Rfam assigns this 86-nucleotide RNA sequence from Micromonas commoda to the family "Selenocysteine transfer RNA". Taxonomically the source falls in Micromonas (Eukaryota, Viridiplantae, Chlorophyta, Mamiellophyceae). Gene Ontology term of the family: triplet codon-amino acid adaptor activity. The family has 109 seed sequences and 4,211 matches in Rfam 15.1.
RNA sequence: GCCGCGAUGAUCCUGAGUGGCCUUGGGUGCAGGCUUCAAACCUGUAGGGGCUUAGCGGCCCAGAGGUUCGAUUCCUCCUUCGAGGC
Numbered sequence: 001g002c003c004g005c006g007a008u009g010a011u012c013c014u015g016a017g018u019g020g021c022c023u024u025g026g027g028u029g030c031a032g033g034c035u036u037c038a039a040a041c042c043u044g045u046a047g048g049g050g051c052u053u054a055g056c057g058g059c060c061c062a063g064a065g066g067u068u069c070g071a072u073u074c075c076u077c078c079u080u081c082g083a084g085g086c
Base pairs, nucleotide, nucleotide: 001086002085003084005082006081007080009078012027013026014025015024016023017022028046029045030044031043032042033041048061049060050059051058052057063077064076065075066074